[Rfam]
Nucleotides: 083
Stems, first nucleotide, its partner, number of pairs: 001083005
Number, partner (000 for none) and nucleotide at each position: 001083u002082g003081c004080u005079c006000a007000a008000u009000g010000a011000u012000u013000a014000a015000g016000c017000c018000a019000u020000g021000u022000u023000a024000a025000u026000c027000c028000a029000u030000g031000g032000c033000a034000a035000u036000a037000u038000g039000c040000g041000c042000u043000a044000u045000u046000c047000u048000g049000a050000a051000u052000c053000a054000u055000a056000u057000u058000a059000a060000g061000a062000u063000g064000u065000c066000a067000u068000a069000a070000a071000c072000a073000u074000u075000a076000u077000g078000a079005g080004a081003g082002c083001a